[Rfam]
RNA: terC RNA
Organism: Aestuariivirga litoralis
RNA sequence: AGACGGGUCCGGGCCCCUCUGGCAGCCACGCGGCUGCGAUGUCGGACUCUUCCA
Dot-bracket structure: .....(((((((.........((((((....))))))....)))))))......